Bacterial large subunit ribosomal RNA: a 233-nucleotide part of an RNA from Oxynema aestuarii. Lineage of the source: Bacteria > Cyanobacteriota > Oscillatoriophycideae > Oscillatoriales > Oxynema aestuarii. The base pairs follow the family's consensus structure, which is taken from published work. The literature on the family includes a 2001 paper in Science by Yusupov et al., "Crystal structure of the ribosome at 5.5 A resolution".

RNA sequence: GAGUUAUUAGACGAGGCUAGGUUAAGGCCGAAAGAGCCGCAGCCCGAGCGAAAGCGAGUCCGAACAGGGCGUAAACAGUCUCGUUUAAUAGACCCGAACCCGGGUGAUCUAACCAUGUCCAGGAUGAAGCUUGGGUAACACCAAGUGGAGGUCCGAACCGACCGAUGUUGAAAAAUCGGCGGAUGAGGUGUGGUUAGGGGUGAAAUGCCAAUCGAACCCGGAGCUAGCUGGUU
Number, nucleotide and partner (000 for none) at each position: 001g000002a000003g000004u000005u090006a089007u088008u087009a086010g085011a084012c083013g082014a081015g080016g079017c078018u000019a000020g044021g043022u042023u041024a000025a000026g038027g037028c036029c000030g000031a000032a000033a000034g000035a000036g028037c027038c026039g000040c000041a023042g022043c021044c020045c000046g000047a000048g055049c054050g000051a000052a000053a000054g049055c048056g000057a000058g070059u069060c068061c067062g000063a000064a000065c000066a000067g061068g060069g059070c058071g000072u000073a000074a000075a000076c000077a000078g017079u016080c015081u014082c013083g012084u011085u010086u009087a008088a007089u006090a005091g000092a000093c231094c230095c000096g228097a000098a000099c000100c221101c220102g219103g218104g217105u216106g000107a000108u000109c197110u196111a195112a194113c193114c192115a191116u190117g189118u188119c187120c185121a000122g154123g153124a152125u151126g000127a000128a000129g146130c145131u144132u143133g142134g141135g000136u000137a000138a000139c000140a000141c134142c133143a132144a131145g130146u129147g000148g000149a000150g000151g125152u124153c123154c122155g000156a000157a000158c182159c181160g180161a000162c179163c178164g177165a176166u175167g000168u000169u000170g000171a000172a000173a000174a000175a166176u165177c164178g163179g162180c160181g159182g158183a000184u000185g120186a000187g119188g118189u117190g116191u115192g114193g113194u112195u111196a110197g109198g000199g209200g208201u207202g000203a000204a000205a000206u000207g201208c200209c199210a000211a000212u000213c000214g000215a000216a105217c104218c103219c102220g101221g100222a000223g000224c000225u000226a000227g000228c096229u000230g094231g093232u000233u000